RNA sequence: CGCCAAGGUGUCCUUACGACCUCCUUGCUGUUGCUUUUGGCUGUACCUUGGGUG
Numbered sequence: 001c002g003c004c005a006a007g008g009u010g011u012c013c014u015u016a017c018g019a020c021c022u023c024c025u026u027g028c029u030g031u032u033g034c035u036u037u038u039g040g041c042u043g044u045a046c047c048u049u050g051g052g053u054g
Base pairs, nucleotide, nucleotide: 001054002053003052004051006049007047008046009045010044011043018041020039027034028033
RNA: Avian HBV RNA encapsidation signal epsilon